A member of the RNA family "tRNA" from Perkinsus olseni, 77 nucleotides long. Rfam describes the family as follows. Transfer RNA (tRNA) molecules are approximately 80 nucleotides in length. The organism belongs to Perkinsus, within Eukaryota. A reference for the family is Hou (1993), "The tertiary structure of tRNA and the development of the genetic code", Trends Biochem Sci.

[Rfam]
RNA sequence: GGGUGUGUAGCUCAGUGGUAAAGUAGAGCGGCUGACUGCAGAUCAGCAGGUCCUCGGUUCAAAUCCGGGCGCGCCCU
Numbered sequence: 001g002g003g004u005g006u007g008u009a010g011c012u013c014a015g016u017g018g019u020a021a022a023g024u025a026g027a028g029c030g031g032c033u034g035a036c037u038g039c040a041g042a043u044c045a046g047c048a049g050g051u052c053c054u055c056g057g058u059u060c061a062a063a064u065c066c067g068g069g070c071g072c073g074c075c076c077u
Base pairs, nucleotide, nucleotide: 001076002075003074004073005072006071007070010029011028012027013026031047032046033045034044035043053069054068055067056066057065
Record summary: The family's consensus secondary structure is taken from published work. It is annotated as a transfer RNA. Rfam 15.1 lists 5,335,975 matches to the family in 14,413 species.